[Rfam]
RNA sequence: CGGGGAUCCGCAGCCUCCCCAUCAGAUGGACGUCCAUCCAAGCGCUCGC
Numbered sequence: 001c002g003g004g005g006a007u008c009c010g011c012a013g014c015c016u017c018c019c020c021a022u023c024a025g026a027u028g029g030a031c032g033u034c035c036a037u038c039c040a041a042g043c044g045c046u047c048g049c
Stems, first nucleotide, its partner, number of pairs: 002020005010049002013046001025038005
Rfam assigns this 49-nucleotide RNA sequence to the family "chrB-b RNA". The family's RNA type in Rfam is cis-regulatory element. The sequence is in the family's curated seed alignment.